[Rfam]
RNA: Small nucleolar RNA SNORA68
RNA sequence: UAUGCACCCAAACCCAAAGCUCAUAUCUGGCGGUGGUAUGAUUUUGUCUGGUGUGCAAACAGAAAUCUGAUCCUUGUCGCCUUUCUCUGCCGCCGCAGUGCCUCUGAAAGUGAAUUCAAGGGUCAACAAAC
Numbered sequence: 001u002a003u004g005c006a007c008c009c010a011a012a013c014c015c016a017a018a019g020c021u022c023a024u025a026u027c028u029g030g031c032g033g034u035g036g037u038a039u040g041a042u043u044u045u046g047u048c049u050g051g052u053g054u055g056c057a058a059a060c061a062g063a064a065a066u067c068u069g070a071u072c073c074u075u076g077u078c079g080c081c082u083u084u085c086u087c088u089g090c091c092g093c094c095g096c097a098g099u100g101c102c103u104c105u106g107a108a109a110g111u112g113a114a115u116u117c118a119a120g121g122g123u124c125a126a127c128a129a130a131c
Stems, first nucleotide, its partner, number of pairs: 003057005009051001019043001021041007069124007081110005089101002